RNA sequence: CUCGUUGAACAUGGGUCCACUGAAGGAACGUUCACGUCGCUGUCCCCAACAGAUGUGUUCUCUUAUUUGCCAAUCCUUCC
Numbered sequence: 001c002u003c004g005u006u007g008a009a010c011a012u013g014g015g016u017c018c019a020c021u022g023a024a025g026g027a028a029c030g031u032u033c034a035c036g037u038c039g040c041u042g043u044c045c046c047c048a049a050c051a052g053a054u055g056u057g058u059u060c061u062c063u064u065a066u067u068u069g070c071c072a073a074u075c076c077u078u079c080c
Stems, first nucleotide, its partner, number of pairs: 013046003017042001022079006029039002050069006
Dot-bracket structure: ............[[[.[....((((((.((.......))..].]]]...((((((........))))))....)))))).

Mammalian CPEB3 ribozyme: an 80-nucleotide RNA from Acanthosepion pharaonis. About the family: The mammalian CPEB3 ribozyme is a self cleaving RNA located in the second intron of the CPEB3 gene which belongs to a family of genes regulating messenger RNA polyadenylation. This ribozyme is highly conserved and found only in mammals. Pairs were carried over by alignment from the consensus structure, which is taken from published work.